[Rfam]
Nucleotides: 314
Stems, first nucleotide, its partner, number of pairs: 001108003005102007013093002018090002024087010035074002037070003042067004046062003116171002118168004122139004127135001141161002147158003202262002207257002211253001213251002225248001231247002288313001290310001292308003
Number, partner (000 for none) and nucleotide at each position: 001108g002107g003106a004000u005102g006101u007100g008099a009098g010097g011096g012000u013093g014092a015000u016000c017000u018090g019089g020000c021000u022000g023000c024087g025086a026085c027084a028083u029082c030081u031080g032079u033078c034000a035074c036073c037070c038069c039068a040000u041000u042067g043066a044065u045064c046062g047061c048060c049000a050000g051000c052000g053000u054000u055000g056000a057000u058000u059000c060048g061047g062046c063000u064045g065044a066043u067042c068039u069038g070037g071000c072000u073036g074035g075000c076000u077000a078033g079032g080031c081030g082029g083028g084027u085026g086025u087024c088000c089019c090018c091000u092014u093013c094000c095000u096011c097010c098009c099008u100007c101006a102005c103000c104000u105000c106003u107002c108001c109000g110000u111000g112000u113000a114000c115000a116171u117170c118168c119167c120166u121165c122139c123138c124137g125136a126000a127135g128000c129000u130000g131000u132000g133000c134000a135127c136125u137124c138123g139122g140000u141161c142160g143000a144000a145000g146000a147158g148157g149156a150000u151000g152000a153000c154000c155000u156149u157148c158147c159000c160142c161141g162000c163000u164000a165121g166120a167119g168118g169000a170117g171116g172000a173000c174000c175000g176000g177000u178000c179000u180000u181000c182000g183000g184000u185000c186000a187000a188000g189000g190000g191000u192000a193000u194000a195000c196000g197000a198000g199000u200000a201000g202262c203261u204000g205000c206000g207257c208256u209000c210000c211253c212000c213251u214250g215000c216000u217000a218000g219000a220000a221000c222000c223000u224000c225248c226000a227000a228000a229000c230000a231247a232246g233000c234000u235000c236000u237000u238000a239000a240000g241000a242000a243000a244000c245000a246232c247231u248225g249000a250214c251213a252000a253211g254000a255000u256208g257207g258000a259000c260000a261203a262202g263000a264000a265000a266000c267000c268000a269000a270000g271000a272000g273000a274000a275000g276000u277000g278000u279000u280000u281000c282000a283000g284000a285000a286000a287000u288313g289000g290310u291000g292308g293307g294306c295000a296000g297000g298000c299000g300000g301000g302000a303000g304000a305000g306294g307293c308292c309000a310290g311000a312000c313288u314000u